[Rfam]
RNA: Small nucleolar RNA SNORD66
RNA sequence: CUCCUGUGAUGAGUUCUGCUUUAUGACAUUGUGUCUGGGCCACUGAUGCUUCAUGAUGGUAAUGAGGAUCUGAGUGGGGAG
Numbered sequence: 001c002u003c004c005u006g007u008g009a010u011g012a013g014u015u016c017u018g019c020u021u022u023a024u025g026a027c028a029u030u031g032u033g034u035c036u037g038g039g040c041c042a043c044u045g046a047u048g049c050u051u052c053a054u055g056a057u058g059g060u061a062a063u064g065a066g067g068a069u070c071u072g073a074g075u076g077g078g079g080a081g
Stems, first nucleotide, its partner, number of pairs: 001081004